Notes: Rfam assigns this 48-nucleotide RNA from Drosophila mojavensis to the family "K10 transport/localisation element (TLS)". About the family: This family represents the 44 nucleotide K10 transport/localisation element (TLS) from Drosophila melanogaster. K10 TLS is responsible for the transport and anterior localisation of K10 mRNA and acts to establish dorsoventral polarity in the oocyte. It is annotated as a cis-regulatory element.
RNA sequence: UGCUUAAUUGUAUUUCUAAAUUAAUUCUUAAAAAUUACAAAUUAAGUU
Numbered sequence: 001u002g003c004u005u006a007a008u009u010g011u012a013u014u015u016c017u018a019a020a021u022u023a024a025u026u027c028u029u030a031a032a033a034a035u036u037a038c039a040a041a042u043u044a045a046g047u048u
Base pairs, nucleotide, nucleotide: 002047003046004045005044006043007042008041009040010038011037012036013034014033015032017030018029019028

A search with the family's covariance model found it, with a score of 54 bits.